The family of this 108-nucleotide RNA sequence from Bacillus thuringiensis is "SAM riboswitch aptamer (S box leader)". The family is grouped with related families in Rfam's "SAM clan". The SAM riboswitch is found upstream of a number of genes which code for proteins involved in methionine or cysteine biosynthesis in Gram-positive bacteria.

[Rfam]
RNA sequence: UUCUUAUCCAGAGAGGUGGAGGGACUGGCCUUAUGAAACCUCAGCAACAGGUCUGCUUAAGUAGACACUGUGCUAAUUCCAGCGGGUGAUAAUCCUGAUAGAUGAGAG
Dot-bracket structure: ((((((((....(((((...(((.[[[[)))......)))))((((.((.((((........))))..))))))...(]]]]((((.......))))..)))))))))